[Rfam]
RNA: ffh sRNA
Organism: Meridianimarinicoccus roseus
RNA sequence: CAGUGCCGGGAUCGCCGUCCACCAGCGCGUUGCGCCCGUGGGCGCGCUUCGC
Numbered sequence: 001c002a003g004u005g006c007c008g009g010g011a012u013c014g015c016c017g018u019c020c021a022c023c024a025g026c027g028c029g030u031u032g033c034g035c036c037c038g039u040g041g042g043c044g045c046g047c048u049u050c051g052c
Base pairs, nucleotide, nucleotide: 016044017043018042019041020040021039022038025035026034027033028032
Dot-bracket structure: ...............(((((((..((((...))))..)))))))........